[Rfam]
The family of this 64-nucleotide sequence from Spiroplasma culicicola is "2dG-I riboswitch aptamer (M. florum)". NCBI's taxonomy places the organism under Bacteria, Bacillati, Mycoplasmatota, Entomoplasmatales, Spiroplasma culicicola. It scores 58 bits against the family's covariance model. The family is grouped with related families in Rfam's "Purine riboswitches". The literature on the family includes a 2007 paper in Proc Natl Acad Sci U S A by Kim et al., "Guanine riboswitch variants from Mesoplasma florum selectively recognize 2'-deoxyguanosine". The base pairs follow the family's consensus structure, which is taken from published work.
RNA sequence: ACUUGUAUAAGUCAACAUAAAGGGUUGAUGUCUCUACCAUAGCACCGAUGCUAUGACUAUAGGU
Numbered sequence: 001a002c003u004u005g006u007a008u009a010a011g012u013c014a015a016c017a018u019a020a021a022g023g024g025u026u027g028a029u030g031u032c033u034c035u036a037c038c039a040u041a042g043c044a045c046c047g048a049u050g051c052u053a054u055g056a057c058u059a060u061a062g063g064u
Stems, first nucleotide, its partner, number of pairs: 001064007008036001011029006022046002030037001038055007